[Rfam]
RNA sequence: AAUCUGUCAGCAAACGAUGUUAAACUAGAUCCGAUGGACUAUGCUGAGUUUGUUCAAUUCAAUCCUGCGCUUUGUAUU
Numbered sequence: 001a002a003u004c005u006g007u008c009a010g011c012a013a014a015c016g017a018u019g020u021u022a023a024a025c026u027a028g029a030u031c032c033g034a035u036g037g038a039c040u041a042u043g044c045u046g047a048g049u050u051u052g053u054u055c056a057a058u059u060c061a062a063u064c065c066u067g068c069g070c071u072u073u074g075u076a077u078u
Stems, first nucleotide, its partner, number of pairs: 001078003005074002009071003
A member of the RNA family "Small nucleolar RNA SNORD69" from Phyllostomus discolor, 78 nucleotides long. Rfam's curators write: snoRNA HBII-210 belongs to the C/D family of snoRNAs. It is the human orthologue of the mouse MBII-210 and is predicted to guide the 2'O-ribose methylation of large 28S rRNA on residue G4464. A reference for the family is Huttenhofer et al. (2001), "RNomics: an experimental approach that identifies 201 candidates for novel, small, non-messenger RNAs in mouse", EMBO J.